This 143-nucleotide sequence from Sporomusa silvacetica belongs to the Rfam family "Group II catalytic intron D1-D4-4". Pairs were carried over by alignment from the consensus structure. About the family: Group II introns are found in rRNA, tRNA and mRNA of organelles in fungi, plants and protists, and also in mRNA in bacteria. For this family Rfam cites "Control of branch-site choice by a group II intron" (Chu et al., EMBO J, 2001). Gene Ontology term of the family: Group II intron splicing. Lineage of the source: Bacteria > Bacillati > Bacillota > Selenomonadales > Sporomusa silvacetica.
RNA sequence: UAACUGGUGAGAGUCCAGUCCGAGUAACCGCCAAGUGGCUUGGUAGCUAUAAGAAUAGCGUCAAUAGAGAUAAUGGCGUUGAAGCGUCUUGAAAAUGUGUCAACAAAAAUUUGAUGCUAGCAAAGUUUCAGACCGUAAAUAAA
Numbered sequence: 001u002a003a004c005u006g007g008u009g010a011g012a013g014u015c016c017a018g019u020c021c022g023a024g025u026a027a028c029c030g031c032c033a034a035g036u037g038g039c040u041u042g043g044u045a046g047c048u049a050u051a052a053g054a055a056u057a058g059c060g061u062c063a064a065u066a067g068a069g070a071u072a073a074u075g076g077c078g079u080u081g082a083a084g085c086g087u088c089u090u091g092a093a094a095a096u097g098u099g100u101c102a103a104c105a106a107a108a109a110u111u112u113g114a115u116g117c118u119a120g121c122a123a124a125g126u127u128u129c130a131g132a133c134c135g136u137a138a139a140u141a142a143a
Stems, first nucleotide, its partner, number of pairs: 020043005051090004056081006065072002097117006120136002